Glycine riboswitch aptamer: a 94-nucleotide RNA sequence from Shouchella clausii. Pairs were carried over by alignment from the consensus structure.
RNA sequence: AUGAUGGUAAAGGGAGAGACUGGGCAUUUACGCCCAGCGCCGAAGGAGCAAGCAUUUUGCGAAUCUCUCAGGCAAAGAAGACUUUUACUUGACG
Number, nucleotide and partner (000 for none) at each position: 001a000002u000003g000004a000005u000006g089007g088008u087009a086010a085011a084012g083013g082014g000015a000016g000017a000018g000019a000020c037021u036022g035023g034024g000025c000026a000027u000028u000029u000030a000031c000032g000033c000034c023035c022036a021037g020038c000039g073040c072041c071042g069043a068044a000045g000046g067047a066048g065049c000050a000051a000052g060053c059054a000055u000056u000057u000058u000059g053060c052061g000062a000063a000064u000065c048066u047067c046068u043069c042070a000071g041072g040073c039074a000075a000076a000077g000078a000079a000080g000081a000082c013083u012084u011085u010086u009087a008088c007089u006090u000091g000092a000093c000094g000